About this RNA: The record is a 197-nucleotide RNA from Ceratopteris richardii, which matches "Small nucleolar RNA ZL1" in Rfam. The family's RNA type in Rfam is C/D-box small nucleolar RNA. Its family is annotated with nucleolus and RNA processing in the Gene Ontology. From the family's description: Host gene TRRAP. Predicted target U2@U47. Only GU-rich region is homologous to other known snoRNAs. Conserved in vertebrates.
RNA sequence: UAUGCAUACAUGCAUGCAUGCAUGCAUGAAUGUAUGCAUGUGCAUUCAUGCAUGUAUGCAUGUGUAUGCAUGCAUGCAUGUGUAUGCAUGCAUGUAUGCAUGUGUAUGCAUGCAUGUAUGCAUGUGUAUGCAUGCAUGUAUGCAUAUGCAUUCAUGUAUGCAUAUGCAUUCAUGUAUGCAUAUGCAUUCAUGUAUGC
Numbered sequence: 001u002a003u004g005c006a007u008a009c010a011u012g013c014a015u016g017c018a019u020g021c022a023u024g025c026a027u028g029a030a031u032g033u034a035u036g037c038a039u040g041u042g043c044a045u046u047c048a049u050g051c052a053u054g055u056a057u058g059c060a061u062g063u064g065u066a067u068g069c070a071u072g073c074a075u076g077c078a079u080g081u082g083u084a085u086g087c088a089u090g091c092a093u094g095u096a097u098g099c100a101u102g103u104g105u106a107u108g109c110a111u112g113c114a115u116g117u118a119u120g121c122a123u124g125u126g127u128a129u130g131c132a133u134g135c136a137u138g139u140a141u142g143c144a145u146a147u148g149c150a151u152u153c154a155u156g157u158a159u160g161c162a163u164a165u166g167c168a169u170u171c172a173u174g175u176a177u178g179c180a181u182a183u184g185c186a187u188u189c190a191u192g193u194a195u196g197c
Stems, first nucleotide, its partner, number of pairs: 004197007014187003026173006035106004040101001042099001044097002047094009064077005108121004124141006143166004148161004